[Rfam]
RNA sequence: CUUUGUAGUAAAGAAGACUAUAAGGCGGAAGGAG
Numbered sequence: 001c002u003u004u005g006u007a008g009u010a011a012a013g014a015a016g017a018c019u020a021u022a023a024g025g026c027g028g029a030a031g032g033a034g
Base pairs, nucleotide, nucleotide: 001025002024003023004022005021006020007019008018
Dot-bracket structure: ((((((((.........)))))))).........

Overview
The family of this 34-nucleotide sequence is "L31-Firmicutes ribosomal protein leader". On this family, see Eckert and Weinberg, BMC Microbiol 2020: "Discovery of 20 novel ribosomal leader candidates in bacteria and archaea".